[Rfam]
RNA: Archaeal large subunit ribosomal RNA, nucleotides 2182 to 2759
Organism: Acidianus brierleyi
RNA sequence: CCUCCAACACCGAGAGAAGACCCCGUGGAGCUUAACUGCAGCCUGGCGCUGGUUCCCGGGCGUCUAUGCGUAGAGUAAGUGGGAGGCGUCGAAGCCAUCCCUCUGGGGAUGGUGGAGCCGAAAGUGAAACACCACUCAUAGAUGCUCGGGAACCUAACCCCGAAAGGGGAACAACGUCAGGUGGGCAGUUCGGCUGGGGCGGCACUCCCGCGAAAAGAUAACACGGGAGCCCAAAGGUCGGCUCAGGUGGUACAGAACGCCGCCGUAGAGUGCAAGGGCAAAAGCCGGCCUGACGAGACCCUUCAAAGUACGGGGUCUCGACGCGAAAGCGCGGCCUAGCGAACGCUCAUGCCCCCACACGUGGGGGCUGGGCAUGUCAGAAAAGUUACCCCGGGGAUAACAGGGUCGUCGCGGGCGAGAGCUCCCAUCGACCCCGCGGUUUGCUACAUCGAUGUCGGCUCUUCCCACCCUGGGGGUGCAGCUGCCCCCAAGGGUAGGGCUGCCCGCCCGUUAAAGGGGAACGUGAGCUGGGUUUAGACCGUCGCGAGACAGGUCGGACUCUAAGGGUUGGAGGUGCA
Numbered sequence: 001c002c003u004c005c006a007a008c009a010c011c012g013a014g015a016g017a018a019g020a021c022c023c024c025g026u027g028g029a030g031c032u033u034a035a036c037u038g039c040a041g042c043c044u045g046g047c048g049c050u051g052g053u054u055c056c057c058g059g060g061c062g063u064c065u066a067u068g069c070g071u072a073g074a075g076u077a078a079g080u081g082g083g084a085g086g087c088g089u090c091g092a093a094g095c096c097a098u099c100c101c102u103c104u105g106g107g108g109a110u111g112g113u114g115g116a117g118c119c120g121a122a123a124g125u126g127a128a129a130c131a132c133c134a135c136u137c138a139u140a141g142a143u144g145c146u147c148g149g150g151a152a153c154c155u156a157a158c159c160c161c162g163a164a165a166g167g168g169g170a171a172c173a174a175c176g177u178c179a180g181g182u183g184g185g186c187a188g189u190u191c192g193g194c195u196g197g198g199g200c201g202g203c204a205c206u207c208c209c210g211c212g213a214a215a216a217g218a219u220a221a222c223a224c225g226g227g228a229g230c231c232c233a234a235a236g237g238u239c240g241g242c243u244c245a246g247g248u249g250g251u252a253c254a255g256a257a258c259g260c261c262g263c264c265g266u267a268g269a270g271u272g273c274a275a276g277g278g279c280a281a282a283a284g285c286c287g288g289c290c291u292g293a294c295g296a297g298a299c300c301c302u303u304c305a306a307a308g309u310a311c312g313g314g315g316u317c318u319c320g321a322c323g324c325g326a327a328a329g330c331g332c333g334g335c336c337u338a339g340c341g342a343a344c345g346c347u348c349a350u351g352c353c354c355c356c357a358c359a360c361g362u363g364g365g366g367g368c369u370g371g372g373c374a375u376g377u378c379a380g381a382a383a384a385g386u387u388a389c390c391c392c393g394g395g396g397a398u399a400a401c402a403g404g405g406u407c408g409u410c411g412c413g414g415g416c417g418a419g420a421g422c423u424c425c426c427a428u429c430g431a432c433c434c435c436g437c438g439g440u441u442u443g444c445u446a447c448a449u450c451g452a453u454g455u456c457g458g459c460u461c462u463u464c465c466c467a468c469c470c471u472g473g474g475g476g477u478g479c480a481g482c483u484g485c486c487c488c489c490a491a492g493g494g495u496a497g498g499g500c501u502g503c504c505c506g507c508c509c510g511u512u513a514a515a516g517g518g519g520a521a522c523g524u525g526a527g528c529u530g531g532g533u534u535u536a537g538a539c540c541g542u543c544g545c546g547a548g549a550c551a552g553g554u555c556g557g558a559c560u561c562u563a564a565g566g567g568u569u570g571g572a573g574g575u576g577c578a
Stems, first nucleotide, its partner, number of pairs: 001574008010566002014561002022395004027391002029387005035189004042181007051154018078136005085119003097110005158169004192205001193203003206228005231334002237289006243269002246264006270279002294320009322331001324329001345373005351368001353367004404445003408442001409439007419429002456531001457529004461523001462520005469494002473488005497509004537555004541550003